mir-196 microRNA precursor family: a 76-nucleotide RNA from Hippolais icterina. The match comes from Rfam's covariance-model search (71 bits). The base pairs follow the family's consensus structure, which was predicted with PFOLD. The literature on the family includes a 2003 paper in Science by Lim et al., "Vertebrate microRNA genes". Rfam links the family to the GO terms gene silencing by miRNA and RISC complex.
RNA sequence: CCUGUGAAUUAGGUAGUUUCAUGUUGUUGGGCUCGGAGUUUCAAUCGCAAGAACAUCAAACUACCUGAUUUACUGC
Number, nucleotide and partner (000 for none) at each position: 001c000002c000003u000004g073005u072006g071007a070008a069009u068010u067011a066012g065013g064014u063015a062016g061017u060018u059019u058020c000021a000022u055023g054024u053025u052026g000027u050028u049029g048030g000031g046032c000033u000034c000035g000036g000037a000038g000039u000040u000041u000042c000043a000044a000045u000046c031047g000048c029049a028050a027051g000052a025053a024054c023055a022056u000057c000058a019059a018060a017061c016062u015063a014064c013065c012066u011067g010068a009069u008070u007071u006072a005073c004074u000075g000076c000